[Rfam]
Background
Shown here is a 91-nucleotide RNA sequence from Silvibacterium bohemicum, a member of the family "Selenocysteine transfer RNA". The family's consensus secondary structure is taken from published work. Rfam links the family to the GO term triplet codon-amino acid adaptor activity.

RNA sequence: UGGAGGGCAUCUUCAGUAGGUACUGGACGCCGUCUGAGAAACGGUUGCAGGGUCUUAGUCAGCUCUGGGAGUUCGACUCUCCUGCCCUCCG
Numbered sequence: 001u002g003g004a005g006g007g008c009a010u011c012u013u014c015a016g017u018a019g020g021u022a023c024u025g026g027a028c029g030c031c032g033u034c035u036g037a038g039a040a041a042c043g044g045u046u047g048c049a050g051g052g053u054c055u056u057a058g059u060c061a062g063c064u065c066u067g068g069g070a071g072u073u074c075g076a077c078u079c080u081c082c083u084g085c086c087c088u089c090c091g
Stems, first nucleotide, its partner, number of pairs: 001091009012027006029045005048067005068082004